The record is a 69-nucleotide RNA from Cynara cardunculus, which matches "Plastid-clpP 5UTR RNA" in Rfam.
About the family: Plastid clpP is a non-coding RNA (ncRNA) recognised in plastids. It was found in the prime untranslated region (5UTR) of a protease complex subunit (clpP) in plastids, suggesting a posible cis-regulatory function.
Rfam 15.1 lists 2,105 matches to the family in 526 species.
The organism belongs to Cynara cardunculus subsp. cardunculus, within Eukaryota.
The match comes from Rfam's covariance-model search (67 bits).
RNA sequence: UUUUUUUUUCGUAAGAACAAAGAGAAGCAGAUUUAUUCUAUAUUUGAUAAGUACCAGCACACAAUGAGG
Numbered sequence: 001u002u003u004u005u006u007u008u009u010c011g012u013a014a015g016a017a018c019a020a021a022g023a024g025a026a027g028c029a030g031a032u033u034u035a036u037u038c039u040a041u042a043u044u045u046g047a048u049a050a051g052u053a054c055c056a057g058c059a060c061a062c063a064a065u066g067a068g069g
Base pairs, nucleotide, nucleotide: 003022004021006019008017009016010015043068044067045066051060052059